Shown here is a 139-nucleotide RNA sequence from Nocardiopsis ansamitocini, a member of the family "SAM riboswitch aptamer (S box leader)". From the family's description: The SAM riboswitch is found upstream of a number of genes which code for proteins involved in methionine or cysteine biosynthesis in Gram-positive bacteria.

RNA sequence: UGCUCAUCCAGAGGGGUGGAGGGACCGGCCCUACGAAGCCCCGGCAACCAUCUCGGUACACGUUUCUCGUCAGGUGCGAGGCGGCCGAGGCAGGUGCCAACUCCGGCCUGUGCCAAAGCGGCUCAGGCGAAGAUGAGGG
Numbered sequence: 001u002g003c004u005c006a007u008c009c010a011g012a013g014g015g016g017u018g019g020a021g022g023g024a025c026c027g028g029c030c031c032u033a034c035g036a037a038g039c040c041c042c043g044g045c046a047a048c049c050a051u052c053u054c055g056g057u058a059c060a061c062g063u064u065u066c067u068c069g070u071c072a073g074g075u076g077c078g079a080g081g082c083g084g085c086c087g088a089g090g091c092a093g094g095u096g097c098c099a100a101c102u103c104c105g106g107c108c109u110g111u112g113c114c115a116a117a118g119c120g121g122c123u124c125a126g127g128c129g130a131a132g133a134u135g136a137g138g139g
Stems, first nucleotide, its partner, number of pairs: 001139001003137006013042005021031003025106004043098004048094002051090007102131001107127004112122003